[Rfam]
RNA sequence: CGGUUUCAGACGCUCCUCUCCUCCUCCCUAGGGACGUCUGAUGGAACAACAGCACUCCUCCUCCCAGCUGCUGUUCGGUUCUUUUCGAAAAGCCUGCCGCACCUCCUCCCGCGGCAGGCUUUUUCG
Numbered sequence: 001c002g003g004u005u006u007c008a009g010a011c012g013c014u015c016c017u018c019u020c021c022u023c024c025u026c027c028c029u030a031g032g033g034a035c036g037u038c039u040g041a042u043g044g045a046a047c048a049a050c051a052g053c054a055c056u057c058c059u060c061c062u063c064c065c066a067g068c069u070g071c072u073g074u075u076c077g078g079u080u081c082u083u084u085u086c087g088a089a090a091a092g093c094c095u096g097c098c099g100c101a102c103c104u105c106c107u108c109c110c111g112c113g114g115c116a117g118g119c120u121u122u123u124u125c126g
Base pairs, nucleotide, nucleotide: 007040008039009038011036012035014033015032016031017030044076045075046074047073048072050070051069052068053067090121091120092119093118094117095116096115097114098113099112100111